The record is a 76-nucleotide RNA from Blastopirellula retiformator, which matches "c-di-GMP-I-GGC riboswitch aptamer" in Rfam. The family's consensus secondary structure is taken from published work. The match comes from Rfam's covariance-model search (64 bits). The organism belongs to Blastopirellula, within Bacteria.
[Rfam]
RNA sequence: CCUCGAAAAGGCAAACCGAUCGUGAGGUCGGGACGCAAAGCCAAGGGCCAUGCAAAUGGUCGCCAGGCUGCCGAAG
Numbered sequence: 001c002c003u004c005g006a007a008a009a010g011g012c013a014a015a016c017c018g019a020u021c022g023u024g025a026g027g028u029c030g031g032g033a034c035g036c037a038a039a040g041c042c043a044a045g046g047g048c049c050a051u052g053c054a055a056a057u058g059g060u061c062g063c064c065a066g067g068c069u070g071c072c073g074a075a076g
Stems, first nucleotide, its partner, number of pairs: 001076001003073001011036002016031006034062001039069004045064002047060003